[Rfam]
RNA: Plastid-psbA-1 3UTR RNA
RNA sequence: UUGAAGCUCCAUCUACAAAUGGAUAAGACUUCGUUCUUAGUGUAUACGAGUGGUUGAAGGAACAAUACCAAAUGUCUGCUUCAACAAGACAUUUGGUAUUGUUCUUUU
Number, nucleotide and partner (000 for none) at each position: 001u000002u000003g000004a000005a000006g000007c000008u023009c022010c021011a020012u019013c000014u000015a000016c000017a000018a000019a012020u011021g010022g009023a008024u000025a000026a000027g000028a000029c000030u000031u000032c000033g000034u000035u000036c000037u000038u000039a000040g000041u000042g000043u000044a000045u000046a000047c000048g000049a000050g000051u000052g000053g000054u000055u000056g000057a107058a106059g105060g104061a103062a102063c101064a100065a099066u098067a097068c096069c000070a094071a093072a092073u000074g090075u089076c088077u087078g000079c000080u000081u000082c000083a000084a000085c000086a000087a077088g076089a075090c074091a000092u072093u071094u070095g000096g068097u067098a066099u065100u064101g063102u062103u061104c060105u059106u058107u057108u000